[Rfam]
RNA sequence: UGACCACCCGGUUUUUUCUCCGGGGCAAGGCCAUACGGACAGCCGGGUCAACUGCCGA
Numbered sequence: 001u002g003a004c005c006a007c008c009c010g011g012u013u014u015u016u017u018c019u020c021c022g023g024g025g026c027a028a029g030g031c032c033a034u035a036c037g038g039a040c041a042g043c044c045g046g047g048u049c050a051a052c053u054g055c056c057g058a
Stems, first nucleotide, its partner, number of pairs: 001050005007024005

This 58-nucleotide RNA from Butyricicoccus pullicaecorum belongs to the Rfam family "Streptococcus sRNA SpF59 (ldcC RNA)". For this family Rfam cites "Control of virulence by small RNAs in Streptococcus pneumoniae" (Mann et al., PLoS Pathog, 2012). Lineage of the source: Bacteria > Clostridia > Butyricicoccaceae > Butyricicoccus > Butyricicoccus pullicaecorum.